A member of the RNA family "ZMP/ZTP riboswitch aptamer (pfl RNA motif)" from Variovorax sp. OV329, 153 nucleotides long.
RNA sequence: GGCCCCGUACGCGACUGGCGAUAGGCGCCGCGACUUGCUCGAAGACCGCUGUCUUCCUGGAACGCUCGCGCUGACGUGGGGAAUACCACUGGGAAGCGUACCGCCCGUGCACUGACAUGCGCGGGCGAUCAGCCGUUCGCCUGGGCAGCCCUU
Numbered sequence: 001g002g003c004c005c006c007g008u009a010c011g012c013g014a015c016u017g018g019c020g021a022u023a024g025g026c027g028c029c030g031c032g033a034c035u036u037g038c039u040c041g042a043a044g045a046c047c048g049c050u051g052u053c054u055u056c057c058u059g060g061a062a063c064g065c066u067c068g069c070g071c072u073g074a075c076g077u078g079g080g081g082a083a084u085a086c087c088a089c090u091g092g093g094a095a096g097c098g099u100a101c102c103g104c105c106c107g108u109g110c111a112c113u114g115a116c117a118u119g120c121g122c123g124g125g126c127g128a129u130c131a132g133c134c135g136u137u138c139g140c141c142u143g144g145g146c147a148g149c150c151c152u153u
Stems, first nucleotide, its partner, number of pairs: 005103001007101006015093002017141005076089004130148001132146003